Record summary
Shown here is a 105-nucleotide RNA sequence from Intrasporangium calvum, a member of the family "Glycine riboswitch aptamer".

[Rfam]
RNA sequence: CGAGCUGUGGCGGGAGAGUCCCGUCGUCCUCAACGAGGACGUUCGGGCGCCGAAGGAGCAAGUCCUCCCCUGGAAUCUCUCAGGCCCCCGUACCGCCACCGGCUG
Numbered sequence: 001c002g003a004g005c006u007g008u009g010g011c012g013g014g015a016g017a018g019u020c021c022c023g024u025c026g027u028c029c030u031c032a033a034c035g036a037g038g039a040c041g042u043u044c045g046g047g048c049g050c051c052g053a054a055g056g057a058g059c060a061a062g063u064c065c066u067c068c069c070c071u072g073g074a075a076u077c078u079c080u081c082a083g084g085c086c087c088c089c090g091u092a093c094c095g096c097c098a099c100c101g102g103c104u105g
Stems, first nucleotide, its partner, number of pairs: 007099007020047004049085003052081002056079003